[Rfam]
RNA sequence: UGGUGAUGAGGAAAGAAAUUCGCGUGCCAGAGGCUUCUGCCGGUGUCAGUUCCACAAAUCCUCUAAGAAGUUCUGAGCCG
Numbered sequence: 001u002g003g004u005g006a007u008g009a010g011g012a013a014a015g016a017a018a019u020u021c022g023c024g025u026g027c028c029a030g031a032g033g034c035u036u037c038u039g040c041c042g043g044u045g046u047c048a049g050u051u052c053c054a055c056a057a058a059u060c061c062u063c064u065a066a067g068a069a070g071u072u073c074u075g076a077g078c079c080g
Stems, first nucleotide, its partner, number of pairs: 001080004